RNA sequence: CAACAAUAUAAAGCGCCUGGACUAUUUCCGAACGAAAUGGAAAAUAGUUGACGAGGAGGAGGGUUAUCGAGAAAGUUCGGCGGAUACCUCCCGGUUGUCUAACAUCUCAACCGAUAUGUUUUUAUUUGAAAACAAAGAGGUGACUCUUUGCACAAGAAUAAAAACAGGAUGUUA
Numbered sequence: 001c002a003a004c005a006a007u008a009u010a011a012a013g014c015g016c017c018u019g020g021a022c023u024a025u026u027u028c029c030g031a032a033c034g035a036a037a038u039g040g041a042a043a044a045u046a047g048u049u050g051a052c053g054a055g056g057a058g059g060a061g062g063g064u065u066a067u068c069g070a071g072a073a074a075g076u077u078c079g080g081c082g083g084a085u086a087c088c089u090c091c092c093g094g095u096u097g098u099c100u101a102a103c104a105u106c107u108c109a110a111c112c113g114a115u116a117u118g119u120u121u122u123u124a125u126u127u128g129a130a131a132a133c134a135a136a137g138a139g140g141u142g143a144c145u146c147u148u149u150g151c152a153c154a155a156g157a158a159u160a161a162a163a164a165c166a167g168g169a170u171g172u173u174a
Stems, first nucleotide, its partner, number of pairs: 020049008029040001058091005067080004092113006118165007133150007
The record is a 174-nucleotide sequence from Aquibacillus koreensis, which matches "glmS glucosamine-6-phosphate activated ribozyme aptamer" in Rfam. By type it is a riboswitch. A reference for the family is Winkler et al. (2004), "Control of gene expression by a natural metabolite-responsive ribozyme", Nature.